The family of this 75-nucleotide RNA from Crocodylus porosus is "Mammalian CPEB3 ribozyme". Rfam's curators write: The mammalian CPEB3 ribozyme is a self cleaving RNA located in the second intron of the CPEB3 gene which belongs to a family of genes regulating messenger RNA polyadenylation. It scores 40 bits against the family's covariance model.
RNA sequence: UCGCAAGUUCAAGGCCAUAGCAGAAGUGUUUACAGUACAGCCCAUCAGAUUCCAAUGAAAUCUGUAAAUUCUGCU
Number, nucleotide and partner (000 for none) at each position: 001u000002c000003g000004c000005a000006a000007g000008u000009u000010c000011a000012a000013g042014g041015c040016c000017a000018u000019a075020g074021c073022a072023g071024a070025a069026g038027u037028g036029u000030u000031u000032a000033c000034a000035g000036u028037a027038c026039a000040g015041c014042c013043c000044a000045u000046c064047a063048g062049a061050u060051u059052c000053c000054a000055a000056u000057g000058a000059a051060a050061u049062c048063u047064g046065u000066a000067a000068a000069u025070u024071c023072u022073g021074c020075u019